[Rfam]
RNA sequence: GGUCUAAAGGAUUGUCUCUAGACGAAGUUUCGAAGCUCUAGAGAUAGUCUUUUAGUC
Numbered sequence: 001g002g003u004c005u006a007a008a009g010g011a012u013u014g015u016c017u018c019u020a021g022a023c024g025a026a027g028u029u030u031c032g033a034a035g036c037u038c039u040a041g042a043g044a045u046a047g048u049c050u051u052u053u054a055g056u057c
Base pairs, nucleotide, nucleotide: 004055005054006053007052008051009050010049011048012047013046014045015044016043017042018041019040020039021038022037
Background
The family of this 57-nucleotide RNA from Glottidia pyramidata is "mir-5045 microRNA precursor family". Its family is annotated with RISC complex and miRNA-mediated post-transcriptional gene silencing in the Gene Ontology.